[Rfam]
Shown here is a 333-nucleotide part of an RNA from cyanobiont of Ornithocercus magnificus, a member of the family "Bacterial large subunit ribosomal RNA".

RNA sequence: CGAGAUAACUCUCUCUAAGGAACUCGGCAAAAUGGCCCCGUAACUUCGGGAGAAGGGGUGCCAGCGAGAGCUGGUCGCAGUGAAGAGGCCCAGGCGACUGUUUACCAAAAACACAGGUCUCCGCUAAGUCGCAAGACGAUGUAUGGGGGCUGACGCCUGCCCAGUGCCGGAAGGUUAAGGAAGCUGGUCAGCGCAAGCAAAGCUAGCGACUGAAGCCCCGGUGAACGGCGGCCGUAACUAUAACGGUCCUAAGGUAGCGAAAUUCCUUGUCGGGUAAGUUCCGACCCGCACGAAAGGCGUAACGAUCUGGGCGCUGUCUCGGAGAGAGGCUCG
Numbered sequence: 001c002g003a004g005a006u007a008a009c010u011c012u013c014u015c016u017a018a019g020g021a022a023c024u025c026g027g028c029a030a031a032a033u034g035g036c037c038c039c040g041u042a043a044c045u046u047c048g049g050g051a052g053a054a055g056g057g058g059u060g061c062c063a064g065c066g067a068g069a070g071c072u073g074g075u076c077g078c079a080g081u082g083a084a085g086a087g088g089c090c091c092a093g094g095c096g097a098c099u100g101u102u103u104a105c106c107a108a109a110a111a112c113a114c115a116g117g118u119c120u121c122c123g124c125u126a127a128g129u130c131g132c133a134a135g136a137c138g139a140u141g142u143a144u145g146g147g148g149g150c151u152g153a154c155g156c157c158u159g160c161c162c163a164g165u166g167c168c169g170g171a172a173g174g175u176u177a178a179g180g181a182a183g184c185u186g187g188u189c190a191g192c193g194c195a196a197g198c199a200a201a202g203c204u205a206g207c208g209a210c211u212g213a214a215g216c217c218c219c220g221g222u223g224a225a226c227g228g229c230g231g232c233c234g235u236a237a238c239u240a241u242a243a244c245g246g247u248c249c250u251a252a253g254g255u256a257g258c259g260a261a262a263u264u265c266c267u268u269g270u271c272g273g274g275u276a277a278g279u280u281c282c283g284a285c286c287c288g289c290a291c292g293a294a295a296g297g298c299g300u301a302a303c304g305a306u307c308u309g310g311g312c313g314c315u316g317u318c319u320c321g322g323a324g325a326g327a328g329g330c331u332c333g
Stems, first nucleotide, its partner, number of pairs: 001333004009328008018319003035059005044049001060075006076080001088312007095304002099113003116151008124141001128137003154299004159229003164226002166222005173217003179211002183207006191198002230248006249253001259286001269285006
Dot-bracket structure: ((((....((((((((.(((..............(((((....(....).....)))))((((((....))))))(...).......(((((((((..(((.........)))..(((((((((...(((....)))...)..))))))))..((((.(((..(((((((..(((...((..((((((..((....))...))))))..))...))))))))..)))))((((((.......))))))(...).....(.........((((((.....))))))).........))))...)).)))))))....))).)))))))).))))
Its Rfam clan is "LSU clan".
The source organism's lineage runs through Bacteria, Bacillati, Cyanobacteriota, Cyanophyceae and Synechococcales.